[Rfam]
RNA sequence: GGUGCCGAUCGUUCGCUGAGGCUCCUUCACGGAAACAGGCCAGCGACCCCGAACGUCGAGAGACGCCCCGGGUCAGGACAGAUCUCCCCGGCUUAAGGGGUGAUCCCGAUUGGCUCCCGUACCCACCGGGUUUACGCCGUGAAGUGCCAAAGGUCUUACGAGGACAGGUGCU
Numbered sequence: 001g002g003u004g005c006c007g008a009u010c011g012u013u014c015g016c017u018g019a020g021g022c023u024c025c026u027u028c029a030c031g032g033a034a035a036c037a038g039g040c041c042a043g044c045g046a047c048c049c050c051g052a053a054c055g056u057c058g059a060g061a062g063a064c065g066c067c068c069c070g071g072g073u074c075a076g077g078a079c080a081g082a083u084c085u086c087c088c089c090g091g092c093u094u095a096a097g098g099g100g101u102g103a104u105c106c107c108g109a110u111u112g113g114c115u116c117c118c119g120u121a122c123c124c125a126c127c128g129g130g131u132u133u134a135c136g137c138c139g140u141g142a143a144g145u146g147c148c149a150a151a152g153g154u155c156u157u158a159c160g161a162g163g164a165c166a167g168g169u170g171c172u
Stems, first nucleotide, its partner, number of pairs: 005168002009164002011159002013096001015154003020148003025144008039114005045074005054065004081105004087099003116130003

This 172-nucleotide sequence from Nocardia sp. CS682 belongs to the Rfam family "M-box riboswitch aptamer (ykoK leader)". From the family's description: M-box riboswitch, also know as ykoK leader is described as a metaloregulatory RNA that sense divalent metals and function as a genetic control element of genes related to divalent metal transport in bacteria. It was first reported upstream of the B.subtilis ykoK gene and genes with related functions in other bacteria. It scores 122 bits against the family's covariance model. On this family, see Barrick et al., Proc Natl Acad Sci U S A 2004: "New RNA motifs suggest an expanded scope for riboswitches in bacterial genetic control". Rfam links the family to the GO terms response to magnesium ion and regulation of gene expression. The family has 159 seed sequences and 1,095 matches in Rfam 15.1.